Rfam assigns this 77-nucleotide RNA to the family "L2-Alphaproteobacteria ribosomal protein leader".
[Rfam]
RNA sequence: GGCCACCUGCGGACGCACAGUCGAGGGGGCUAACACAUAGGGUGGAUCCUCCACCCGUCUGCAAACGGAAGACAGAA
Numbered sequence: 001g002g003c004c005a006c007c008u009g010c011g012g013a014c015g016c017a018c019a020g021u022c023g024a025g026g027g028g029g030c031u032a033a034c035a036c037a038u039a040g041g042g043u044g045g046a047u048c049c050u051c052c053a054c055c056c057g058u059c060u061g062c063a064a065a066c067g068g069a070a071g072a073c074a075g076a077a
Stems, first nucleotide, its partner, number of pairs: 001031004006027003040056007